mir-156 microRNA precursor family: an 88-nucleotide sequence from Rhamnella rubrinervis. The source organism's lineage runs through Eukaryota, Spermatophyta, Rosales, Rhamneae and Rhamnella. From the family's description: This family represents the plant microRNA (miRNA) precursor mir-156. A search with the family's covariance model found it, with a score of 78 bits. Pairs were carried over by alignment from the consensus structure, which was predicted with PFOLD. Rfam links the family to the GO terms RISC complex and miRNA-mediated post-transcriptional gene silencing.
[Rfam]
RNA sequence: GUGACAGAAGAGAGUGAGCACACAUGGCAUUUUCUUGCAUGGUGGAAUUCAUGCUUGAAGCUCUCUGUGCUCACUCUCUAUCUGUCAC
Numbered sequence: 001g002u003g004a005c006a007g008a009a010g011a012g013a014g015u016g017a018g019c020a021c022a023c024a025u026g027g028c029a030u031u032u033u034c035u036u037g038c039a040u041g042g043u044g045g046a047a048u049u050c051a052u053g054c055u056u057g058a059a060g061c062u063c064u065c066u067g068u069g070c071u072c073a074c075u076c077u078c079u080a081u082c083u084g085u086c087a088c
Stems, first nucleotide, its partner, number of pairs: 001088008010078012024064001